[Rfam]
RNA sequence: GAAGACCCUGUUGAGCUUGACUCUAGUUUGACAUUGUGAAAAGACAUAGAGGGUGUAGAAUAAGUGGGAGGUUCUGGUCUAACUAGUUCCGACAGUGAAAUACCACUACCUUUAUUGUUUUUUUACUUAUUUUAUAAUGAGGAACUAGGCUUCACGGCCUACCCUUCUGGAAUUAAGGUUUAGUUAGGCAGGAUUCGGGCGGGUUUUCUUUAACCGGAAUUCUCUUCUGUUUCUUGUUAUUUUCUUGCUGAUCCUGGUAAAAGACAUUGUCAGGUGGGGAGUUUGGCUGGGGCGGCACAUCUGUUAAAUAAUAACGCAGGUGUCCUAAGGGGGGCUCAACGAGAACAGAAAUCUCGUGUAGAACAAAAGGGUAAAAGCCCCCUUGAUUUUGAUUUUCAGUAUGAAUACAAACCAUGAAAGUGUGGCCUAUCGAUCCUUUAGAUCCUGGAAAUUUCAGGCUAGAGGUGUCAGAAAAGUUACCACAGGGAUAACUGGCUUGUGGCAGCCAAGCGUUCAUAGCGACGUUGCUUUUUGAUCCUUCGAUGU
Numbered sequence: 001g002a003a004g005a006c007c008c009u010g011u012u013g014a015g016c017u018u019g020a021c022u023c024u025a026g027u028u029u030g031a032c033a034u035u036g037u038g039a040a041a042a043g044a045c046a047u048a049g050a051g052g053g054u055g056u057a058g059a060a061u062a063a064g065u066g067g068g069a070g071g072u073u074c075u076g077g078u079c080u081a082a083c084u085a086g087u088u089c090c091g092a093c094a095g096u097g098a099a100a101u102a103c104c105a106c107u108a109c110c111u112u113u114a115u116u117g118u119u120u121u122u123u124u125a126c127u128u129a130u131u132u133u134a135u136a137a138u139g140a141g142g143a144a145c146u147a148g149g150c151u152u153c154a155c156g157g158c159c160u161a162c163c164c165u166u167c168u169g170g171a172a173u174u175a176a177g178g179u180u181u182a183g184u185u186a187g188g189c190a191g192g193a194u195u196c197g198g199g200c201g202g203g204u205u206u207u208c209u210u211u212a213a214c215c216g217g218a219a220u221u222c223u224c225u226u227c228u229g230u231u232u233c234u235u236g237u238u239a240u241u242u243u244c245u246u247g248c249u250g251a252u253c254c255u256g257g258u259a260a261a262a263g264a265c266a267u268u269g270u271c272a273g274g275u276g277g278g279g280a281g282u283u284u285g286g287c288u289g290g291g292g293c294g295g296c297a298c299a300u301c302u303g304u305u306a307a308a309u310a311a312u313a314a315c316g317c318a319g320g321u322g323u324c325c326u327a328a329g330g331g332g333g334g335c336u337c338a339a340c341g342a343g344a345a346c347a348g349a350a351a352u353c354u355c356g357u358g359u360a361g362a363a364c365a366a367a368a369g370g371g372u373a374a375a376a377g378c379c380c381c382c383u384u385g386a387u388u389u390u391g392a393u394u395u396u397c398a399g400u401a402u403g404a405a406u407a408c409a410a411a412c413c414a415u416g417a418a419a420g421u422g423u424g425g426c427c428u429a430u431c432g433a434u435c436c437u438u439u440a441g442a443u444c445c446u447g448g449a450a451a452u453u454u455c456a457g458g459c460u461a462g463a464g465g466u467g468u469c470a471g472a473a474a475a476g477u478u479a480c481c482a483c484a485g486g487g488a489u490a491a492c493u494g495g496c497u498u499g500u501g502g503c504a505g506c507c508a509a510g511c512g513u514u515c516a517u518a519g520c521g522a523c524g525u526u527g528c529u530u531u532u533u534g535a536u537c538c539u540u541c542g543a544u545g546u
Base pairs, nucleotide, nucleotide: 007486008485009484010483012482013481014478015477016476017475018474020282021281022280023279027274028273029272030271031270032269033268036126037125038124039123040122041121042120043119044118045117046115047114048113049112050111051110052109063107064106065105066104067103070090071089130262131261132260133259134258140255141254142253143252147160148159149158150157151156177249178248179247285298286296287295288294299321300320301319302318303317304316324425325424330382331381332380333379334378335377336362337361339357340356341355342354343353344352363372364371387411388410389409392406393405394404395403413422414421415420436464437463438462439461440460441459444458445457446456447455495536497534499533501529502528503527504526505525506524510520511519

This 546-nucleotide part of an RNA from Smittium mucronatum belongs to the Rfam family "Eukaryotic large subunit ribosomal RNA".
The family is grouped with related families in Rfam's "LSU clan".
On this family, see Yusupov et al., Science 2001: "Crystal structure of the ribosome at 5.5 A resolution".